[Rfam]
RNA sequence: UCCCUGCUUUUCCUCCCUGAGCAGGAGCCUUGCCGUGAUGACAGCGAUAAGGCUUUUCGGCCCCAGCCCAUUGGCUGGGGCUUUUUUC
Numbered sequence: 001u002c003c004c005u006g007c008u009u010u011u012c013c014u015c016c017c018u019g020a021g022c023a024g025g026a027g028c029c030u031u032g033c034c035g036u037g038a039u040g041a042c043a044g045c046g047a048u049a050a051g052g053c054u055u056u057u058c059g060g061c062c063c064c065a066g067c068c069c070a071u072u073g074g075c076u077g078g079g080g081c082u083u084u085u086u087u088c
Stems, first nucleotide, its partner, number of pairs: 003025006027053006060081008
A member of the RNA family "Burkholderia RNA 7 (anti-hemB)" from Rhizobacter gummiphilus, 88 nucleotides long. Lineage of the source: Bacteria > Pseudomonadota > Betaproteobacteria > Sphaerotilaceae > Rhizobacter. Its family is annotated with bacterial biofilm matrix and protein binding in the Gene Ontology. The family's RNA type in Rfam is small RNA. This RNA motif was identified by computational search in b-proteobacteria Burkholderia. Co-purified with Hfq, expression confirmed by Northern blot.